Mycobacterium sRNA ncrMT1302: a 107-nucleotide RNA sequence from Mycobacterium ulcerans.
RNA sequence: AACAGACCGAACUCAAGUGCCGGAGAAUGGGGUGGAAUCCGGCCGCGUAAGCGCCGCGUAAGACGGACCAAACGCCCCCGGGAGUCGCUCCGGGCCUGCCCAUAUGA
Numbered sequence: 001a002a003c004a005g006a007c008c009g010a011a012c013u014c015a016a017g018u019g020c021c022g023g024a025g026a027a028u029g030g031g032g033u034g035g036a037a038u039c040c041g042g043c044c045g046c047g048u049a050a051g052c053g054c055c056g057c058g059u060a061a062g063a064c065g066g067a068c069c070a071a072a073c074g075c076c077c078c079c080g081g082g083a084g085u086c087g088c089u090c091c092g093g094g095c096c097u098g099c100c101c102a103u104a105u106g107a
Stems, first nucleotide, its partner, number of pairs: 005086003020042004028034001045075004054066003092101003
For this family Rfam cites "A screen for non-coding RNA in Mycobacterium tuberculosis reveals a cAMP-responsive RNA that is expressed during infection" (Pelly et al., Gene, 2012). The sequence is in the family's curated seed alignment. The source organism's lineage runs through Bacteria, Bacillati, Actinomycetota, Mycobacterium and Mycobacterium ulcerans.